[Rfam]
Nucleotides: 062
Base pairs, nucleotide, nucleotide: 035058036057037056038055039054040053041052042051043050044049
Number, partner (000 for none) and nucleotide at each position: 001000u002000u003000g004000u005000a006000u007000u008000a009000c010000u011000g012000c013000u014000c015000u016000u017000u018000u019000a020000g021000a022000a023000u024000u025000u026000g027000u028000c029000u030000a031000g032000c033000a034000g035058g036057c037056u038055u039054u040053c041052u042051g043050g044049u045000u046000u047000u048000u049044g050043c051042u052041g053040g054039a055038a056037a057036g058035c059000a060000a061000c062000c